RNA sequence: ACGAUGAAGAGUUUGAUCCUGGCUCAGGAUGAACGCUAGCGGCAGGCCUAACACAUGCAAGUCGAACGGCAGCAUAGAUUGCUUGCAAUCUGAUGGCGAGUGGCGCACGGGUGCGUAACGCGUAUGCAAUCUACCUUUAACAGGGGUAUAGCCCAGAGAAAUUUGGAUUAAUCCCCCAUGGUAUUAUUAAUUGGCAUCGAUUGAUAAUUAAAACUUCGGUGGUUAAAGAUGAGCAUGCGUCUUAUUAGCUAGUUGGUAUGGUAACGGCAUACCAAGGCAACGAUAAGUAGGGGUCCUGAGAGGGAGAUCCCCCACACUGGUACUGAGACACGGACCAGACUCCUACGGGAGGCAGCAGUGAGGAAUAUUGGACAAUGGUCGGAAGACUGAUCCAGCCAUGCCGCGUGCAGGAAGACUGCCCUAUGGGUUGUAAACUGCUUUUGCAGAGGAAGAAUAAGGUAUACGUGUAUACUGAUGACGGUACUCUGCGAAUAAGCACCGGCUAACUCCGUGCCAGCAGCCGCGGUAAUACGGAGGGUGCAAGCGUUAUCCGGAAUCAUUG
Numbered sequence: 001a002c003g004a005u006g007a008a009g010a011g012u013u014u015g016a017u018c019c020u021g022g023c024u025c026a027g028g029a030u031g032a033a034c035g036c037u038a039g040c041g042g043c044a045g046g047c048c049u050a051a052c053a054c055a056u057g058c059a060a061g062u063c064g065a066a067c068g069g070c071a072g073c074a075u076a077g078a079u080u081g082c083u084u085g086c087a088a089u090c091u092g093a094u095g096g097c098g099a100g101u102g103g104c105g106c107a108c109g110g111g112u113g114c115g116u117a118a119c120g121c122g123u124a125u126g127c128a129a130u131c132u133a134c135c136u137u138u139a140a141c142a143g144g145g146g147u148a149u150a151g152c153c154c155a156g157a158g159a160a161a162u163u164u165g166g167a168u169u170a171a172u173c174c175c176c177c178a179u180g181g182u183a184u185u186a187u188u189a190a191u192u193g194g195c196a197u198c199g200a201u202u203g204a205u206a207a208u209u210a211a212a213a214c215u216u217c218g219g220u221g222g223u224u225a226a227a228g229a230u231g232a233g234c235a236u237g238c239g240u241c242u243u244a245u246u247a248g249c250u251a252g253u254u255g256g257u258a259u260g261g262u263a264a265c266g267g268c269a270u271a272c273c274a275a276g277g278c279a280a281c282g283a284u285a286a287g288u289a290g291g292g293g294u295c296c297u298g299a300g301a302g303g304g305a306g307a308u309c310c311c312c313c314a315c316a317c318u319g320g321u322a323c324u325g326a327g328a329c330a331c332g333g334a335c336c337a338g339a340c341u342c343c344u345a346c347g348g349g350a351g352g353c354a355g356c357a358g359u360g361a362g363g364a365a366u367a368u369u370g371g372a373c374a375a376u377g378g379u380c381g382g383a384a385g386a387c388u389g390a391u392c393c394a395g396c397c398a399u400g401c402c403g404c405g406u407g408c409a410g411g412a413a414g415a416c417u418g419c420c421c422u423a424u425g426g427g428u429u430g431u432a433a434a435c436u437g438c439u440u441u442u443g444c445a446g447a448g449g450a451a452g453a454a455u456a457a458g459g460u461a462u463a464c465g466u467g468u469a470u471a472c473u474g475a476u477g478a479c480g481g482u483a484c485u486c487u488g489c490g491a492a493u494a495a496g497c498a499c500c501g502g503c504u505a506a507c508u509c510c511g512u513g514c515c516a517g518c519a520g521c522c523g524c525g526g527u528a529a530u531a532c533g534g535a536g537g538g539u540g541c542a543a544g545c546g547u548u549a550u551c552c553g554g555a556a557u558c559a560u561u562g
Stems, first nucleotide, its partner, number of pairs: 009025005027552004032548006039404006045397002047362001052360003056357003061104003066101002069097002075092007111315003120240008130232002135228007143177004151168001153166005183208007191200003213220002241287003248278003253275008290312004294305004317338005340351004368394001370393003376389005407438004418428003443489006452479001458473003496541005507536005517524002
Dot-bracket structure: ........(((((.......))))).((((.((((((.(((((((((....(((.(((..(((..((.((....(((((((....)))))))...))..)))))......(((......((((((((..((...(((((((.((((....(.(((((....))))).).....)))).....(((((((.(((....))).)))))))....((....)).)))))))..))))))))))(((....(((..((((((((.......)))))))))))......)))..((((((((....))))...))))))).(((((............))))).((((....))))...)))))).).....(.(((...(((((....))))).)))).)).))))))..((((.......(((.....)))......))))....((((((...(.....(((..........))).....)....))))))......(((((......(((((.....((....)).......)))))))))).))))))))))..........
The record is a 562-nucleotide part of an RNA from Leptobacterium flavescens, which matches "Bacterial small subunit ribosomal RNA" in Rfam.
The literature on the family includes a 2001 paper in Science by Yusupov et al., "Crystal structure of the ribosome at 5.5 A resolution".
Clan: SSU clan.
Taxonomically the source falls in Leptobacterium (Bacteria, Flavobacteriia, Flavobacteriales, Flavobacteriaceae).